[Rfam]
RNA sequence: UGACCUCGGAUCAGGUAGGGAUACCCGCUGAACUUAAGCAUAUCAAUAAGCGGAGGAAAAGAAACCAACAGGGAUUGCCUCAGUAACGGCGAGUGAAGCGGCAACAGCUCAAAUUUGAAAUCUGGCUCCUCUCGGGGUCCGAGUUGUAAUUUGUAGAGGAUGCUUCGGGUGCGGCACCGGUCUAAGUCCCUUGGAACAGGGCGUCAUAGAGGGUGAGGAUCCCGUAUGUGACCGGCGACCAAGUCCAUGUGAAGCUCCUUCGACGAGUCGAGUUGUUUGGGAAUGCAGCUCAAAAUGGGUGGUAAAUUUCAUCUAAAGCUAAAUACCGGCCAGAGACCGAUAGCGCACAAGUAGAGUGAUCGAAAGAUGAAAAGCACUUUGGAAAGAGAGUCAAAAAGUACGUGAAAUUGUUGAAAGGGAAG
Numbered sequence: 001u002g003a004c005c006u007c008g009g010a011u012c013a014g015g016u017a018g019g020g021a022u023a024c025c026c027g028c029u030g031a032a033c034u035u036a037a038g039c040a041u042a043u044c045a046a047u048a049a050g051c052g053g054a055g056g057a058a059a060a061g062a063a064a065c066c067a068a069c070a071g072g073g074a075u076u077g078c079c080u081c082a083g084u085a086a087c088g089g090c091g092a093g094u095g096a097a098g099c100g101g102c103a104a105c106a107g108c109u110c111a112a113a114u115u116u117g118a119a120a121u122c123u124g125g126c127u128c129c130u131c132u133c134g135g136g137g138u139c140c141g142a143g144u145u146g147u148a149a150u151u152u153g154u155a156g157a158g159g160a161u162g163c164u165u166c167g168g169g170u171g172c173g174g175c176a177c178c179g180g181u182c183u184a185a186g187u188c189c190c191u192u193g194g195a196a197c198a199g200g201g202c203g204u205c206a207u208a209g210a211g212g213g214u215g216a217g218g219a220u221c222c223c224g225u226a227u228g229u230g231a232c233c234g235g236c237g238a239c240c241a242a243g244u245c246c247a248u249g250u251g252a253a254g255c256u257c258c259u260u261c262g263a264c265g266a267g268u269c270g271a272g273u274u275g276u277u278u279g280g281g282a283a284u285g286c287a288g289c290u291c292a293a294a295a296u297g298g299g300u301g302g303u304a305a306a307u308u309u310c311a312u313c314u315a316a317a318g319c320u321a322a323a324u325a326c327c328g329g330c331c332a333g334a335g336a337c338c339g340a341u342a343g344c345g346c347a348c349a350a351g352u353a354g355a356g357u358g359a360u361c362g363a364a365a366g367a368u369g370a371a372a373a374g375c376a377c378u379u380u381g382g383a384a385a386g387a388g389a390g391u392c393a394a395a396a397a398g399u400a401c402g403u404g405a406a407a408u409u410g411u412u413g414a415a416a417g418g419g420a421a422g
Stems, first nucleotide, its partner, number of pairs: 024055001025053005035042002065072002076103004086094002106320004112151004118145002121142002124139004156261002158258003163254004168245003173240002177235006186202001188201004205209001212222002270291007297314005354361002377388004